RNA sequence: AGUUCACGUUCAAGGAGAUAGACCUCCUCCCCUGUCUCCUGACGUGUUGCCGACGGGAUAUCCUCCUCCCAAUCCCGUUCGGACAUUGCGACGCCCGCCGGUACCUCCUCCCACCGGCGGGCGUUCGCU
Numbered sequence: 001a002g003u004u005c006a007c008g009u010u011c012a013a014g015g016a017g018a019u020a021g022a023c024c025u026c027c028u029c030c031c032c033u034g035u036c037u038c039c040u041g042a043c044g045u046g047u048u049g050c051c052g053a054c055g056g057g058a059u060a061u062c063c064u065c066c067u068c069c070c071a072a073u074c075c076c077g078u079u080c081g082g083a084c085a086u087u088g089c090g091a092c093g094c095c096c097g098c099c100g101g102u103a104c105c106u107c108c109u110c111c112c113a114c115c116g117g118c119g120g121g122c123g124u125u126c127g128c129u
Base pairs, nucleotide, nucleotide: 007044008043009042013040014039015038016037017036018035019034050082051081052080053078054077055076056075057074058073059072091124092123093122094121095120096119097118098117099116100115101114

This 129-nucleotide RNA sequence from Stappia indica belongs to the Rfam family "Alphaproteobacterial ar14". A search with the family's covariance model found it, with a score of 66 bits. Rfam 15.1 lists 784 matches to the family in 332 species. The source organism's lineage runs through Bacteria, Pseudomonadati, Pseudomonadota, Alphaproteobacteria and Stappia. Gene Ontology term of the family: biological process involved in symbiotic interaction.